[Rfam]
RNA sequence: AACUUUGCGCAGAGGCAAUAUCGUAACCAAUGAGGUUAAUCCGAGGUGCGAUUAUUGCUAGUUGAAAACUUUACCAAUACCCCGCCUUGUGGUCGUGAAACACCGACCGCUAUGGCAAUUUUUGAACGGCUGUUAAAGC
Numbered sequence: 001a002a003c004u005u006u007g008c009g010c011a012g013a014g015g016c017a018a019u020a021u022c023g024u025a026a027c028c029a030a031u032g033a034g035g036u037u038a039a040u041c042c043g044a045g046g047u048g049c050g051a052u053u054a055u056u057g058c059u060a061g062u063u064g065a066a067a068a069c070u071u072u073a074c075c076a077a078u079a080c081c082c083c084g085c086c087u088u089g090u091g092g093u094c095g096u097g098a099a100a101c102a103c104c105g106a107c108c109g110c111u112a113u114g115g116c117a118a119u120u121u122u123u124g125a126a127c128g129g130c131u132g133u134u135a136a137a138g139c
Stems, first nucleotide, its partner, number of pairs: 020052005026047003034042002084116003087112001089110007129139003
This 139-nucleotide sequence from Papilio machaon belongs to the Rfam family "U4 spliceosomal RNA".
Rfam classes the family as a spliceosomal small nuclear RNA.
The base pairs follow the family's consensus structure, which is taken from published work.
It scores 119 bits against the family's covariance model.
The organism belongs to Papilio, within Eukaryota.